[Rfam]
RNA sequence: CAUCCCAAUGAAGAAGGAAUUUUUAAAGUAGUGGGCUGAUUGCCAUUGAUGACUGACCAAUUCUGAGGGAUG
Dot-bracket structure: ((((((............................................................))))))

Overview
Rfam assigns this 72-nucleotide RNA sequence from Ricinus communis to the family "Small nucleolar RNA R21". A reference for the family is Barneche et al. (2001), "Identification of 66 box C/D snoRNAs in Arabidopsis thaliana: extensive gene duplications generated multiple isoforms predicting new ribosomal RNA 2'-O-methylation sites", J Mol Biol. Gene Ontology terms of the family: nucleolus and RNA processing. The family's RNA type in Rfam is C/D-box small nucleolar RNA. NCBI's taxonomy places the organism under Eukaryota, Euphyllophyta, Spermatophyta, Pentapetalae, Ricinus.